[Rfam]
This 128-nucleotide RNA from Stegodyphus mimosarum belongs to the Rfam family "U11 spliceosomal RNA". The family's RNA type in Rfam is spliceosomal small nuclear RNA. Gene Ontology terms of the family: mRNA 5'-splice site recognition, U11 snRNP and pre-mRNA 5'-splice site binding.
RNA sequence: AAAAAGGGUGUCUGCCUGCUAAAUGGCACACAGUUCCUCUGGAGCUGUGCAGAAUCGCUAGCAAGAGAUUCCGGGCACGUAAUUUUUGUGACUUGGGGCUGCUGAUAGCCACUGUCUUUGGCGCCCCU
Numbered sequence: 001a002a003a004a005a006g007g008g009u010g011u012c013u014g015c016c017u018g019c020u021a022a023a024u025g026g027c028a029c030a031c032a033g034u035u036c037c038u039c040u041g042g043a044g045c046u047g048u049g050c051a052g053a054a055u056c057g058c059u060a061g062c063a064a065g066a067g068a069u070u071c072c073g074g075g076c077a078c079g080u081a082a083u084u085u086u087u088g089u090g091a092c093u094u095g096g097g098g099c100u101g102c103u104g105a106u107a108g109c110c111a112c113u114g115u116c117u118u119u120g121g122c123g124c125c126c127c128u
Stems, first nucleotide, its partner, number of pairs: 008078005013028004029049009050073001052071005096126004101122005107117002110114001